[Rfam]
RNA: Small nucleolar RNA R30/Z108
Organism: Panicum hallii
RNA sequence: UAGCGUUGCUAUGAGUAACAAGCUCCCUCUUCUGAAGGCACUGAGGACACCUGCUGGCAGAAUCGAACCAAUUAACCUUAUUGCCGCCACUGAGCAA
Numbered sequence: 001u002a003g004c005g006u007u008g009c010u011a012u013g014a015g016u017a018a019c020a021a022g023c024u025c026c027c028u029c030u031u032c033u034g035a036a037g038g039c040a041c042u043g044a045g046g047a048c049a050c051c052u053g054c055u056g057g058c059a060g061a062a063u064c065g066a067a068c069c070a071a072u073u074a075a076c077c078u079u080a081u082u083g084c085c086g087c088c089a090c091u092g093a094g095c096a097a
Base pairs, nucleotide, nucleotide: 006097007096008095009094